[Rfam]
RNA sequence: UUCCACCACCCGUUUGACACAAUACUCUGCUGCGGUAUUGUGUGACCUGCAGUGUCAACGGCUGGUGGAA
Numbered sequence: 001u002u003c004c005a006c007c008a009c010c011c012g013u014u015u016g017a018c019a020c021a022a023u024a025c026u027c028u029g030c031u032g033c034g035g036u037a038u039u040g041u042g043u044g045a046c047c048u049g050c051a052g053u054g055u056c057a058a059c060g061g062c063u064g065g066u067g068g069a070a
Base pairs, nucleotide, nucleotide: 001070002069003068004067005066006065007064010061011060012059013058014057021039022038023037024036025035026034044056045055046054
RNA: bZIP non canonical Hac1/Xbp1 intron